[Rfam]
RNA sequence: UGCGAGGGUGAUGAGUUGCACUGCAGUGGAGUAAUCAUGUCAGGUGACAUGGACUCCUCAGAAUCUGCCUGAUGACAAAAUUAAGUGCACAGGGGCCAUCUGACUCGCA
Numbered sequence: 001u002g003c004g005a006g007g008g009u010g011a012u013g014a015g016u017u018g019c020a021c022u023g024c025a026g027u028g029g030a031g032u033a034a035u036c037a038u039g040u041c042a043g044g045u046g047a048c049a050u051g052g053a054c055u056c057c058u059c060a061g062a063a064u065c066u067g068c069c070u071g072a073u074g075a076c077a078a079a080a081u082u083a084a085g086u087g088c089a090c091a092g093g094g095g096c097c098a099u100c101u102g103a104c105u106c107g108c109a
Stems, first nucleotide, its partner, number of pairs: 004108001006106003022062001026059001028057002031054002037050005
This 109-nucleotide RNA from Jacana jacana belongs to the Rfam family "Small nucleolar RNA SNORD67". By type it is a C/D-box small nucleolar RNA. About the family: snoRNA HBII-166 belongs to the C/D family of snoRNAs.